The record is a 204-nucleotide sequence, which matches "raiA RNA" in Rfam. Rfam classes the family as a riboswitch. The sequence is in the family's curated seed alignment.
RNA sequence: GCAUCACAGGUCUGUGGCUGAAAAUCGAUGGCAGUCGCAGCCAAAACGAUCCACGUAACGCAGAAAAAAUUUCUGCUGAGCAUGGUGCGGUUUAGAAGUAAGUCCUGCCGGUAAACCGAGAGGGUUAGUAGUGAGAGGGAACACCGGGUAGCGAAAGCUCCAGCAGGCGAGUGUGGGGUCAAAAGCCAGGUCAGCUGAGGAUGC
Numbered sequence: 001g002c003a004u005c006a007c008a009g010g011u012c013u014g015u016g017g018c019u020g021a022a023a024a025u026c027g028a029u030g031g032c033a034g035u036c037g038c039a040g041c042c043a044a045a046a047c048g049a050u051c052c053a054c055g056u057a058a059c060g061c062a063g064a065a066a067a068a069a070u071u072u073c074u075g076c077u078g079a080g081c082a083u084g085g086u087g088c089g090g091u092u093u094a095g096a097a098g099u100a101a102g103u104c105c106u107g108c109c110g111g112u113a114a115a116c117c118g119a120g121a122g123g124g125u126u127a128g129u130a131g132u133g134a135g136a137g138g139g140a141a142c143a144c145c146g147g148g149u150a151g152c153g154a155a156a157g158c159u160c161c162a163g164c165a166g167g168c169g170a171g172u173g174u175g176g177g178g179u180c181a182a183a184a185g186c187c188a189g190g191u192c193a194g195c196u197g198a199g200g201a202u203g204c
Base pairs, nucleotide, nucleotide: 001204002203003202004201005200007197008196009195012194013193014192015188016187017186018185019184028174029173030172031041033092034091035090036089037088038087039086050085051084058077063072064071083181104167105166106165107164108163109118110117111116122160123159124158125157131152132151137145138144
Dot-bracket structure: (((((.(((..((((((((........((([.(((((((.]........((......(....((......))....).....[)))))))))...........((((((((....)))...((((.....((....((.....)).....))....))))..)))))....)))......]..)))))...))))))..)))))